[Rfam]
RNA: Small nucleolar RNA snoR8a
RNA sequence: UUGGAUGCGAUGAUUAUAAGCAAUUCCUCGUACUGAUUGCUAUUGGCAUGACAGACACGUUACACCCAUAGAAUAUGAGCAUC
Numbered sequence: 001u002u003g004g005a006u007g008c009g010a011u012g013a014u015u016a017u018a019a020g021c022a023a024u025u026c027c028u029c030g031u032a033c034u035g036a037u038u039g040c041u042a043u044u045g046g047c048a049u050g051a052c053a054g055a056c057a058c059g060u061u062a063c064a065c066c067c068a069u070a071g072a073a074u075a076u077g078a079g080c081a082u083c
Stems, first nucleotide, its partner, number of pairs: 003083002006081002